[Rfam]
RNA sequence: ACCGAAAAAGGCAAACCCAUCGCAAGGUGGGGACGCAAAGUCAUGGGUCCCACGUCGGAUCGCCAGACCGCCGAAG
Numbered sequence: 001a002c003c004g005a006a007a008a009a010g011g012c013a014a015a016c017c018c019a020u021c022g023c024a025a026g027g028u029g030g031g032g033a034c035g036c037a038a039a040g041u042c043a044u045g046g047g048u049c050c051c052a053c054g055u056c057g058g059a060u061c062g063c064c065a066g067a068c069c070g071c072c073g074a075a076g
Stems, first nucleotide, its partner, number of pairs: 003073002011036002016031006034062001040068003044065003047060003
RNA: c-di-GMP-I-GGC riboswitch aptamer
Organism: Cohnella sp. AR92